[Rfam]
RNA sequence: UAAUGGCAGGGGAGAAAGGACAUAAUACGUUCAUGCUAGCAUGAUAAGUAUUAUGGCUUUGAAACCCGAAGAAUAUGAGGAAGAAGCACUAUUGUGCGAAUUCCGAAUGUUCUAGAAUUGCGAGAGUUGCGAGCAACGGAGCAAUUCGUGCCAUUA
Numbered sequence: 001u002a003a004u005g006g007c008a009g010g011g012g013a014g015a016a017a018g019g020a021c022a023u024a025a026u027a028c029g030u031u032c033a034u035g036c037u038a039g040c041a042u043g044a045u046a047a048g049u050a051u052u053a054u055g056g057c058u059u060u061g062a063a064a065c066c067c068g069a070a071g072a073a074u075a076u077g078a079g080g081a082a083g084a085a086g087c088a089c090u091a092u093u094g095u096g097c098g099a100a101u102u103c104c105g106a107a108u109g110u111u112c113u114a115g116a117a118u119u120g121c122g123a124g125a126g127u128u129g130c131g132a133g134c135a136a137c138g139g140a141g142c143a144a145u146u147c148g149u150g151c152c153a154u155u156a
Base pairs, nucleotide, nucleotide: 001156002155003154004153005152006151007150010066011065016060017059018058019057021055022054023053024052025051026050027049028048030046031044032043033042034041035040070113071112072111073110074109075108076107079104080103081102082101086097087096088095089094115147116146117145118144119143120142121141126137127136128135129134